[Rfam]
RNA sequence: AGUCUUGAGUAAUCGCGGUCUACUUUGGUAGGCUGAGGAAAGUCCAUGCCCGCACAGGCUGUGAUGCCUGUAGUGUUCGUGCCAGGCCCAAUAAGCCUGGGUACCGUGCAAACGGUAACGGCGGCGGAAAGUGCUAAAGCUUCGGCCAUGUGCAAGUACGUUUGAAAGUGCCACAGAGACGAUGCCAACGGGAAACUGUUGGAUUGGAACGCGGUAAACCCCGCGAGCGAGUAACCCAAACUUUGGUAGGGGCGCUUUGCCAUGGGAAUUGAACCAACGGCAAAGCAGUAGAAAUACUGAGAUAGAUGAUUACUGAAGGGUGACCUGCCUGAGGCCACCUGGAACAAAACAUGGCUUAUAGAG
Number, nucleotide and partner (000 for none) at each position: 001a000002g000003u000004c363005u362006u361007g359008a314009g313010u312011a311012a310013u309014c308015g000016c035017g034018g033019u032020c031021u030022a000023c000024u000025u000026u000027g000028g000029u000030a021031g020032g019033c018034u017035g016036a000037g000038g000039a000040a357041a356042g355043u000044c354045c353046a352047u351048g350049c231050c000051c229052g228053c227054a071055c070056a069057g068058g067059c066060u000061g000062u000063g000064a000065u000066g059067c058068c057069u056070g055071u054072a000073g000074u000075g000076u000077u226078c225079g224080u223081g222082c100083c099084a098085g097086g096087c095088c000089c000090a000091a000092u000093a000094a000095g087096c086097c085098u084099g083100g082101g119102u117103a116104c115105c114106g113107u112108g000109c000110a000111a000112a107113c106114g105115g104116u103117a102118a000119c101120g221121g220122c000123g162124g161125c160126g159127g000128a000129a000130a000131g153132u152133g151134c150135u000136a000137a000138a000139g146140c145141u000142u000143c000144g000145g140146c139147c000148a000149u000150g134151u133152g132153c131154a000155a000156g000157u000158a000159c126160g125161u124162u123163u000164g000165a000166a000167a000168g219169u218170g215171c214172c213173a000174c000175a000176g000177a000178g000179a000180c000181g000182a000183u000184g000185c202186c201187a200188a199189c198190g197191g196192g000193a000194a000195a000196c191197u190198g189199u188200u187201g186202g185203a000204u000205u000206g000207g000208a000209a000210c000211g000212c000213g172214g171215u170216a000217a000218a169219c168220c121221c120222c081223g080224c079225g078226a077227g053228c052229g051230a000231g049232u000233a000234a000235c251236c250237c249238a000239a000240a000241c000242u000243u000244u000245g000246g000247u000248a000249g237250g236251g235252g000253c000254g000255c285256u284257u283258u282259g281260c280261c279262a000263u000264g000265g000266g000267a000268a000269u000270u000271g000272a000273a000274c000275c000276a000277a000278c000279g261280g260281c259282a258283a257284a256285g255286c299287a298288g297289u296290a295291g000292a000293a000294a000295u290296a289297c288298u287299g286300a000301g000302a000303u000304a000305g000306a000307u000308g014309a013310u012311u011312a010313c009314u008315g000316a000317a000318g340319g339320g338321u337322g336323a000324c334325c333326u332327g000328c000329c000330u000331g000332a326333g325334g324335c000336c322337a321338c320339c319340u318341g000342g000343a000344a000345c000346a000347a000348a000349a000350c048351a047352u046353g045354g044355c042356u041357u040358a000359u007360a000361g006362a005363g004
Rfam assigns this 363-nucleotide RNA sequence from Lacticaseibacillus thailandensis to the family "Bacterial RNase P class B". It scores 327 bits against the family's covariance model. The family's consensus secondary structure is taken from published work. About the family: Ribonuclease P (RNase P) is a ubiquitous endoribonuclease, found in archaea, bacteria and eukarya as well as chloroplasts and mitochondria. Its best characterised activity is the generation of mature 5'-ends of tRNAs by cleaving the 5'-leader elements of precursor-tRNAs. Cellular RNase Ps are ribonucleoproteins. RNA from bacterial RNase Ps retains its catalytic activity in the absence of the protein subunit, i.e. it is a ribozyme. The organism belongs to Lacticaseibacillus thailandensis, within Bacteria. Clan: RNaseP clan.